[Rfam]
RNA sequence: GUCUCCUGGGCAUCUUGUUAAAACGCAGAUUUGUAUUCAGGCGAUCUAGGGUGGGGCCUGGGAUUCUGCAUUUCUAACAAAUUCCCAGGUGAUGCUGC
Numbered sequence: 001g002u003c004u005c006c007u008g009g010g011c012a013u014c015u016u017g018u019u020a021a022a023a024c025g026c027a028g029a030u031u032u033g034u035a036u037u038c039a040g041g042c043g044a045u046c047u048a049g050g051g052u053g054g055g056g057c058c059u060g061g062g063a064u065u066c067u068g069c070a071u072u073u074c075u076a077a078c079a080a081a082u083u084c085c086c087a088g089g090u091g092a093u094g095c096u097g098c
Stems, first nucleotide, its partner, number of pairs: 003091001005089001009085002015080006021073003025069005031063002
A member of the RNA family "mir-544 microRNA precursor family" from Lipotes vexillifer, 98 nucleotides long. A reference for the family is Chiang et al. (2010), "Mammalian microRNAs: experimental evaluation of novel and previously annotated genes", Genes Dev.